[Rfam]
RNA sequence: GUGAAGGGAUGCUAGGGUUCCGAUUGCGUCGCCUCCAGGCGCGCAAUGGCUGGUCCGAGAGCAGCCGGCUUCGUACAGAUGAUCGCAAAUUGGCGUCCAUCGCGAGGUUACACGGAGGGAUAAAAGCCCGGGAGGC
Numbered sequence: 001g002u003g004a005a006g007g008g009a010u011g012c013u014a015g016g017g018u019u020c021c022g023a024u025u026g027c028g029u030c031g032c033c034u035c036c037a038g039g040c041g042c043g044c045a046a047u048g049g050c051u052g053g054u055c056c057g058a059g060a061g062c063a064g065c066c067g068g069c070u071u072c073g074u075a076c077a078g079a080u081g082a083u084c085g086c087a088a089a090u091u092g093g094c095g096u097c098c099a100u101c102g103c104g105a106g107g108u109u110a111c112a113c114g115g116a117g118g119g120a121u122a123a124a125a126g127c128c129c130g131g132g133a134g135g136c
Stems, first nucleotide, its partner, number of pairs: 007066002010063003015056002020053002022050001023047006067109008111131001113134001117129003
RNA: Guanidine-I riboswitch aptamer
Organism: Herminiimonas sp.